[Rfam]
RNA sequence: AUGGUCUGGGUAAAGGCGCCUGUGUGGUUGCACUUUCCCCGUAGACUGUGCAGCCAGUACCAGGCAGCCCCACCCUGACCUAGAGUGAAUCCCCCUGGGGAGUCUUCCCUGGGAUUUGAAUUUGCAAUAACAGGUGUGACCAUUCUAGCAGCAGCUUGAUGAUCA
Numbered sequence: 001a002u003g004g005u006c007u008g009g010g011u012a013a014a015g016g017c018g019c020c021u022g023u024g025u026g027g028u029u030g031c032a033c034u035u036u037c038c039c040c041g042u043a044g045a046c047u048g049u050g051c052a053g054c055c056a057g058u059a060c061c062a063g064g065c066a067g068c069c070c071c072a073c074c075c076u077g078a079c080c081u082a083g084a085g086u087g088a089a090u091c092c093c094c095c096u097g098g099g100g101a102g103u104c105u106u107c108c109c110u111g112g113g114a115u116u117u118g119a120a121u122u123u124g125c126a127a128u129a130a131c132a133g134g135u136g137u138g139a140c141c142a143u144u145c146u147a148g149c150a151g152c153a154g155c156u157u158g159a160u161g162a163u164c165a
Stems, first nucleotide, its partner, number of pairs: 003080004008075003015069003019064004024060002026055005032049002092113003097108004137165003141161004147156003

Record summary
Shown here is a 165-nucleotide sequence from Sciurus carolinensis, a member of the family "Small Cajal body specific RNA 16". From the family's description: scaRNAs are a specific class of small nuclear RNAs which localise to the Cajal bodies and guide the modification of RNA polymerase II transcribed spliceosomal RNAs U1, U2, U4, U5 and U12. ACA47 belongs to the H/ACA box class of guide RNAs as it has the predicted hairpin-hinge-hairpin-tail structure, the conserved H/ACA-box motifs and is found associated with GAR1. ACA47 is predicted to guide the pseudouridylation of residue U5 of the U1 spliceosomal snRNA. For this family Rfam cites "Cajal body-specific small nuclear RNAs: a novel class of 2'-O-methylation and pseudouridylation guide RNAs" (Darzacq et al., EMBO J, 2002). By type it is a small Cajal body RNA. Rfam links the family to the GO terms nucleolus and RNA processing. Taxonomically the source falls in Sciurus (Eukaryota, Metazoa, Teleostomi, Sciuromorpha). The match comes from Rfam's covariance-model search (141 bits).